[Rfam]
Burkholderia sRNA Bp1_Cand684_SIPHT: a 128-nucleotide RNA sequence from Paraburkholderia saeva. Pairs were carried over by alignment from the consensus structure, which was predicted with RNAalifold. The literature on the family includes a 2012 paper in BMC Genomics by Khoo et al., "Computational discovery and RT-PCR validation of novel Burkholderia conserved and Burkholderia pseudomallei unique sRNAs". It is annotated as a small RNA.
RNA sequence: AGAAAAGUAGGUGCCGCCCCGCACAGGGGCGACGCUAAUAGACCGACAUGACUUCAAGGAAAGGCCAAAGCAAAGAAACAGCUUCAGCACAAAAAAAACCGAAACGCCGCCCCGCCAGGGGGCCAAAA
Numbered sequence: 001a002g003a004a005a006a007g008u009a010g011g012u013g014c015c016g017c018c019c020c021g022c023a024c025a026g027g028g029g030c031g032a033c034g035c036u037a038a039u040a041g042a043c044c045g046a047c048a049u050g051a052c053u054u055c056a057a058g059g060a061a062a063g064g065c066c067a068a069a070g071c072a073a074a075g076a077a078a079c080a081g082c083u084u085c086a087g088c089a090c091a092a093a094a095a096a097a098a099c100c101g102a103a104a105c106g107c108c109g110c111c112c113c114g115c116c117a118g119g120g121g122g123c124c125a126a127a128a
Stems, first nucleotide, its partner, number of pairs: 011090004015031006110120003